[Rfam]
TPP riboswitch aptamer (THI element): a 96-nucleotide sequence from Sphingobacterium thalpophilum. The source organism's lineage runs through Bacteria, Bacteroidota, Sphingobacteriia, Sphingobacteriales and Sphingobacterium.
RNA sequence: CAUCAGCUUUAGGGGUGUCUGCAUAUGCAGGCUGAGAUUUUACCCUUAGAACCUGAUCCAGAUCAUACUGGCGUAGGGAAAAGUGCGAUGUCUACA
Numbered sequence: 001c002a003u004c005a006g007c008u009u010u011a012g013g014g015g016u017g018u019c020u021g022c023a024u025a026u027g028c029a030g031g032c033u034g035a036g037a038u039u040u041u042a043c044c045c046u047u048a049g050a051a052c053c054u055g056a057u058c059c060a061g062a063u064c065a066u067a068c069u070g071g072c073g074u075a076g077g078g079a080a081a082a083g084u085g086c087g088a089u090g091u092c093u094a095c096a
Stems, first nucleotide, its partner, number of pairs: 006084005011046004017032005052077004058071004